The family of this 136-nucleotide sequence from Pteropus vampyrus is "Small nucleolar RNA SNORA48".
The base pairs follow the family's consensus structure, which was predicted with RNAalifold.
The family's RNA type in Rfam is H/ACA-box small nucleolar RNA.
Its family is annotated with RNA processing and nucleolus in the Gene Ontology.
[Rfam]
RNA sequence: UGUCUCUAUCCUGAGGAAAGGGGUACCUGUUUUGAUGGUGUUUGUCUCAUUAGCCAGGAAUGAAGUGAUGCCAUGUUUAUCCCAGCUGGGCUUUUUUGGUCUGUGCCCAUGCCUGGUUAAUGCCAUGGACACACAU
Numbered sequence: 001u002g003u004c005u006c007u008a009u010c011c012u013g014a015g016g017a018a019a020g021g022g023g024u025a026c027c028u029g030u031u032u033u034g035a036u037g038g039u040g041u042u043u044g045u046c047u048c049a050u051u052a053g054c055c056a057g058g059a060a061u062g063a064a065g066u067g068a069u070g071c072c073a074u075g076u077u078u079a080u081c082c083c084a085g086c087u088g089g090g091c092u093u094u095u096u097u098g099g100u101c102u103g104u105g106c107c108c109a110u111g112c113c114u115g116g117u118u119a120a121u122g123c124c125a126u127g128g129a130c131a132c133a134c135a136u
Stems, first nucleotide, its partner, number of pairs: 001062003005058003011053004019047002022042006074131006089124003097120001099118001101116003105112002

From the family's description: The snoRNA ACA 48 has been identified to guide pseudouridylation of the residue U3797 in the 28S rRNA subunit. The match comes from Rfam's covariance-model search (82 bits). The family is grouped with related families in Rfam's "SNORA48 clan".